[Rfam]
RNA: Ribosomal protein L10 leader
Organism: aff. Roholtiella sp. LEGE 12411
RNA sequence: AAAACUAAAUAAGCAAAGCCAAAGAUAGCAGGUGCCAAUUGCUUAAUAUCCUGCCGAGGUUGAAGUUCUUAUUGUCUGAAGUGCCACCACCAACGGUGUGAUAACUAUGGCAUGAAGAAUAUUACUUUUAAACCCCGGCUGAAAUGGCUGGGGUUUAUUGUUUUGAGU
Dot-bracket structure: ...........................(((((.((.....)).......)))))..............................................................................(((((((((...)))))))))...............